[Rfam]
RNA sequence: GGGAGGUUAGUGUACCUGGUGGGCACCACAGGCUUCAACCCUGAUUGACGGUUUUGAUGACAACGCCGUGGGAGGUUCGAUUCCUUCACCUUCUC
Numbered sequence: 001g002g003g004a005g006g007u008u009a010g011u012g013u014a015c016c017u018g019g020u021g022g023g024c025a026c027c028a029c030a031g032g033c034u035u036c037a038a039c040c041c042u043g044a045u046u047g048a049c050g051g052u053u054u055u056g057a058u059g060a061c062a063a064c065g066c067c068g069u070g071g072g073a074g075g076u077u078c079g080a081u082u083c084c085u086u087c088a089c090c091u092u093c094u095c
Base pairs, nucleotide, nucleotide: 001095002094003093004092005091006090008088012026013025015023016021028045029043030042031041032040048069049068050067051066052065072086073085074084075083
Dot-bracket structure: ((((((.(...((.((....).).)).(((((.......)))).)..(((((............)))))..((((.......)))).).))))))
Overview:
A member of the RNA family "Selenocysteine transfer RNA" from Aliarcobacter butzleri, 95 nucleotides long. The base pairs follow the family's consensus structure, which is taken from published work. The organism belongs to Aliarcobacter butzleri, within Bacteria. Rfam's curators put it in the seed alignment.